[Rfam]
RNA sequence: UUGGUUAGAAAUCAACUCAGGUUGCAGCCGCAAUGGCCGCAACAGGAGGCCCGUGACGCCGGCAACGGGCCGCUCUGGUAGAGGCUAUCUACCAGGCCUCAACUCGGGGCUAACAGGACAUAACAGUCAAC
Numbered sequence: 001u002u003g004g005u006u007a008g009a010a011a012u013c014a015a016c017u018c019a020g021g022u023u024g025c026a027g028c029c030g031c032a033a034u035g036g037c038c039g040c041a042a043c044a045g046g047a048g049g050c051c052c053g054u055g056a057c058g059c060c061g062g063c064a065a066c067g068g069g070c071c072g073c074u075c076u077g078g079u080a081g082a083g084g085c086u087a088u089c090u091a092c093c094a095g096g097c098c099u100c101a102a103c104u105c106g107g108g109g110c111u112a113a114c115a116g117g118a119c120a121u122a123a124c125a126g127u128c129a130a131c
Stems, first nucleotide, its partner, number of pairs: 021043005027037003048071007077093006095111006
RNA: rmf RNA
Organism: Pseudomonas cavernae